This 121-nucleotide RNA from Yersinia mollaretii belongs to the Rfam family "Enterobacteria greA leader".
[Rfam]
RNA sequence: GCCAUACUACGGUGCAACGAGGGCGAAAGUAAACGAUGACCCUAAAGGAACUCUACGUUAAAAUGCAUAUCAAAAUGCAAAAUUGAUCCUAACCUGGUUUUUUUGCUUCAGGGGUGAUUGU
Number, nucleotide and partner (000 for none) at each position: 001g040002c000003c038004a037005u036006a000007c000008u000009a000010c035011g034012g000013u000014g030015c029016a000017a000018c000019g000020a000021g000022g000023g000024c000025g000026a000027a000028a000029g015030u014031a000032a000033a000034c011035g010036a005037u004038g003039a000040c001041c048042c047043u000044a000045a000046a000047g042048g041049a000050a000051c000052u000053c000054u000055a000056c000057g071058u000059u069060a068061a000062a000063a000064u000065g000066c000067a000068u060069a059070u000071c057072a000073a000074a000075a000076u000077g000078c000079a000080a000081a000082a000083u000084u000085g000086a000087u000088c114089c113090u000091a000092a000093c112094c111095u110096g109097g108098u000099u000100u000101u000102u000103u000104u000105g000106c000107u000108u097109c096110a095111g094112g093113g089114g088115u000116g000117a000118u000119u000120g000121u000
The family's consensus secondary structure is taken from published work. On this family, see Naville and Gautheret, Genome Biol 2010: "Premature terminator analysis sheds light on a hidden world of bacterial transcriptional attenuation". Rfam classes the family as a cis-regulatory leader. Lineage of the source: Bacteria > Enterobacterales > Yersiniaceae > Yersinia > Yersinia mollaretii.